Shown here is a 99-nucleotide sequence from Salmonella enterica, a member of the family "isrI Hfq binding RNA". Taxonomically the source falls in Salmonella enterica subsp. enterica serovar Saintpaul (Bacteria, Pseudomonadati, Enterobacterales, Salmonella enterica).
RNA sequence: AUGAGUAGGUGCCUGGCAUCUGACAAGAGGCGAUGAUAUCUGCCAUAACGGUGAAGCAGAAGUAAUAUCACCCGUGAAUAAUAAGAUUAUCCUUGCUAU
Numbered sequence: 001a002u003g004a005g006u007a008g009g010u011g012c013c014u015g016g017c018a019u020c021u022g023a024c025a026a027g028a029g030g031c032g033a034u035g036a037u038a039u040c041u042g043c044c045a046u047a048a049c050g051g052u053g054a055a056g057c058a059g060a061a062g063u064a065a066u067a068u069c070a071c072c073c074g075u076g077a078a079u080a081a082u083a084a085g086a087u088u089a090u091c092c093u094u095g096c097u098a099u
Base pairs, nucleotide, nucleotide: 008040009039010038011037013035017032019030020029021028042052043051044050

It is annotated as a small RNA.